Small nucleolar RNA U6-53/MBII-28: a 121-nucleotide RNA from Parambassis ranga.
Lineage of the source: Eukaryota > Metazoa > Gnathostomata > Euteleosteomorpha > Parambassis.
A reference for the family is Huttenhofer et al. (2001), "RNomics: an experimental approach that identifies 201 candidates for novel, small, non-messenger RNAs in mouse", EMBO J.
Its family is annotated with nucleolus and RNA processing in the Gene Ontology.
It is annotated as a C/D-box small nucleolar RNA.
[Rfam]
RNA sequence: CUCCAAUGAUGAUUCAGCCAUGCUAAUACUGAUACAUCGGACAGAUACGUGUUGUCUGUCCGGAUGUAAGUGAGUUCAACUCACCUUCUCACGCUGAUAGUAUCAGUGUGUGCUGAGGAGA
Numbered sequence: 001c002u003c004c005a006a007u008g009a010u011g012a013u014u015c016a017g018c019c020a021u022g023c024u025a026a027u028a029c030u031g032a033u034a035c036a037u038c039g040g041a042c043a044g045a046u047a048c049g050u051g052u053u054g055u056c057u058g059u060c061c062g063g064a065u066g067u068a069a070g071u072g073a074g075u076u077c078a079a080c081u082c083a084c085c086u087u088c089u090c091a092c093g094c095u096g097a098u099a100g101u102a103u104c105a106g107u108g109u110g111u112g113c114u115g116a117g118g119a120g121a
Stems, first nucleotide, its partner, number of pairs: 001120004042058005